[Rfam]
The family of this 134-nucleotide RNA from Desulfuromonas acetoxidans is "SAM-I/IV (S-adenosyl methionine) riboswitch aptamer".
RNA sequence: ACCAUGCAUUAAGAGAGGCGUGGCGGCAUGAGCCAAGCGCCCGGCAACCUGACAACCAAGGUGCCAGCAUGUUUUGUGAACACGGUGUUUGCAAAACAGCGAUGCGCCCCGUAAGGGGAAAGUUGACCUACCGU
Number, nucleotide and partner (000 for none) at each position: 001a000002c000003c000004a000005u000006g105007c104008a103009u102010u101011a000012a000013g000014a000015g042016a000017g041018g040019c039020g038021u037022g000023g000024c000025g000026g000027c000028a000029u000030g000031a000032g000033c000034c000035a000036a000037g021038c020039g019040c018041c017042c015043g065044g064045c063046a000047a000048c061049c060050u059051g057052a000053c000054a000055a000056c000057c051058a000059a050060g049061g048062u000063g045064c044065c043066a000067g000068c000069a000070u000071g000072u000073u000074u000075u000076g000077u000078g000079a000080a000081c000082a000083c000084g000085g000086u000087g000088u000089u000090u000091g000092c000093a000094a000095a000096a000097c000098a000099g000100c000101g010102a009103u008104g007105c006106g000107c118108c117109c116110c115111g000112u000113a000114a000115g110116g109117g108118g107119a000120a000121a000122g000123u000124u000125g000126a000127c000128c000129u000130a000131c000132c000133g000134u000

Pairs were carried over by alignment from the consensus structure, which is taken from published work. The source organism's lineage runs through Bacteria, Desulfuromonadia, Desulfuromonadales, Desulfuromonadaceae and Desulfuromonas acetoxidans.